[Rfam]
RNA sequence: UGGGCCAGUGAUGAUGAAUGGUAGCAGAUGAGUCUGGAUAAUGAGUAAUAUAUGCUAGAUACUGAGGUCCAA
Numbered sequence: 001u002g003g004g005c006c007a008g009u010g011a012u013g014a015u016g017a018a019u020g021g022u023a024g025c026a027g028a029u030g031a032g033u034c035u036g037g038a039u040a041a042u043g044a045g046u047a048a049u050a051u052a053u054g055c056u057a058g059a060u061a062c063u064g065a066g067g068u069c070c071a072a
Stems, first nucleotide, its partner, number of pairs: 002070005